The family of this 231-nucleotide sequence is "Clostridiales-3 RNA". By type it is a small RNA.
RNA sequence: AAGAGAGUUGAUGGACCGAAGGGUGAAAAUGUAGCAUGCAGAGUAGAUUUAAUGUACUCGGAAGGAUAAUAAACCACAAGGGAAGAGAGUAAUUCCCUAUCCUCGAAAUGGCAUGAGAGGAGAUAGCAGAACCGAAAGGCGAAGCGUCGUGAACGCCACGGGGCGGCUCGUUUGUAAUUCCCAGUGUACAGGGCGAUGAGGAGAUUUCAACUGAAAUCAUGUACACAUACA
Numbered sequence: 001a002a003g004a005g006a007g008u009u010g011a012u013g014g015a016c017c018g019a020a021g022g023g024u025g026a027a028a029a030u031g032u033a034g035c036a037u038g039c040a041g042a043g044u045a046g047a048u049u050u051a052a053u054g055u056a057c058u059c060g061g062a063a064g065g066a067u068a069a070u071a072a073a074c075c076a077c078a079a080g081g082g083a084a085g086a087g088a089g090u091a092a093u094u095c096c097c098u099a100u101c102c103u104c105g106a107a108a109u110g111g112c113a114u115g116a117g118a119g120g121a122g123a124u125a126g127c128a129g130a131a132c133c134g135a136a137a138g139g140c141g142a143a144g145c146g147u148c149g150u151g152a153a154c155g156c157c158a159c160g161g162g163g164c165g166g167c168u169c170g171u172u173u174g175u176a177a178u179u180c181c182c183a184g185u186g187u188a189c190a191g192g193g194c195g196a197u198g199a200g201g202a203g204a205u206u207u208c209a210a211c212u213g214a215a216a217u218c219a220u221g222u223a224c225a226c227a228u229a230c231a
Base pairs, nucleotide, nucleotide: 007030008029009028015024016023017022075151076150077149079098080097081096082095083094084093100121101120102119103118104117122148123147124146126145127144132139154165155164156163184226185225186224187223188222189221190220204217205216206215207214208213